Description: A member of the RNA family "ASpks TB sRNA" from Amycolatopsis sp. SID8362, 69 nucleotides long. Lineage of the source: Bacteria > Bacillati > Actinomycetota > Pseudonocardiales > Amycolatopsis.

[Rfam]
RNA sequence: CUUCACCGAACCCAGCAACAACGCCGCGUCACGAUCCUGGCCGUACGUCGCCAGCAACGCCUGCGCUUC
Numbered sequence: 001c002u003u004c005a006c007c008g009a010a011c012c013c014a015g016c017a018a019c020a021a022c023g024c025c026g027c028g029u030c031a032c033g034a035u036c037c038u039g040g041c042c043g044u045a046c047g048u049c050g051c052c053a054g055c056a057a058c059g060c061c062u063g064c065g066c067u068u069c
Stems, first nucleotide, its partner, number of pairs: 015024002026064002032059002037054003041050001043048001